[Rfam]
Shown here is a 94-nucleotide RNA from Tetracentron sinense, a member of the family "Small nucleolar RNA snoR99". Pairs were carried over by alignment from the consensus structure, which was predicted with WAR. It is annotated as an H/ACA-box small nucleolar RNA. Rfam links the family to the GO terms RNA processing and nucleolus. The match comes from Rfam's covariance-model search (59 bits).
RNA sequence: GUGCUUGAAGGAUGAGUCCCUGAUAUGCAAUCUUCCUCCAUCCAUUUCACUUUAUCAGCAAGCUUCUAGCUGAUCAUUCAAGGGUGGAACAUGU
Numbered sequence: 001g002u003g004c005u006u007g008a009a010g011g012a013u014g015a016g017u018c019c020c021u022g023a024u025a026u027g028c029a030a031u032c033u034u035c036c037u038c039c040a041u042c043c044a045u046u047u048c049a050c051u052u053u054a055u056c057a058g059c060a061a062g063c064u065u066c067u068a069g070c071u072g073a074u075c076a077u078u079c080a081a082g083g084g085u086g087g088a089a090c091a092u093g094u
Base pairs, nucleotide, nucleotide: 037088038087039086040085041084042083054074055073056072057071058070059069061067